[Rfam]
RAGATH-18 RNA: a 72-nucleotide sequence from Clostridium taeniosporum.
RNA sequence: CCCUCGGAGUGUCACAUAAAACGAAAGUAGUAAUUUUUAGGAAUUACAAAAUCGGACACAUUGAACAGGGAA
Numbered sequence: 001c002c003c004u005c006g007g008a009g010u011g012u013c014a015c016a017u018a019a020a021a022c023g024a025a026a027g028u029a030g031u032a033a034u035u036u037u038u039a040g041g042a043a044u045u046a047c048a049a050a051a052u053c054g055g056a057c058a059c060a061u062u063g064a065a066c067a068g069g070g071a072a
Base pairs, nucleotide, nucleotide: 001070002069003068004067009059010058011057012056013055022054023053024052030047031046032045034043035042